[Rfam]
Rfam assigns this 86-nucleotide RNA sequence from Mikania micrantha to the family "small nucleolar RNA snoR114". The source organism's lineage runs through Eukaryota, Streptophyta, Magnoliopsida, asterids and Mikania. On this family, see Chen and Wu, Nucleic Acids Res 2009: "Mining small RNA sequencing data: a new approach to identify small nucleolar RNAs in Arabidopsis".

RNA sequence: GAGCUAUGAUGACAAGCCUUUCAUGGUGGUUGGGUCCAUCAUACAUCUACCUUUCAAUGGAAGAAAAAAUUGGCCCUUCUGAGCUC
Numbered sequence: 001g002a003g004c005u006a007u008g009a010u011g012a013c014a015a016g017c018c019u020u021u022c023a024u025g026g027u028g029g030u031u032g033g034g035u036c037c038a039u040c041a042u043a044c045a046u047c048u049a050c051c052u053u054u055c056a057a058u059g060g061a062a063g064a065a066a067a068a069a070u071u072g073g074c075c076c077u078u079c080u081g082a083g084c085u086c
Stems, first nucleotide, its partner, number of pairs: 001086004
Dot-bracket structure: ((((..............................................................................))))